[Rfam]
Annotation: The family of this 141-nucleotide sequence from Caproiciproducens sp. NJN-50 is "FMN riboswitch aptamer (RFN element)".
RNA sequence: AAAUGUCUUCAGGGCAGGGUGAAAUUCCCGAUCGGCGGUAUAGUCCGCGAGCGCGUAAGCGCAGGACUUGACAUUAUGUUCAAGUCAGGAUUUGGUGAAACUCCAAAACCGACAGUAAAGUCUGGAUAGAAGAAGAUGUGU
Dot-bracket structure: ..((((((((......(((.......))).[[((((((....[[))))....(...............................).....(((((.......)))))]])).(((....]]))).......))))))))..
The match comes from Rfam's covariance-model search (108 bits).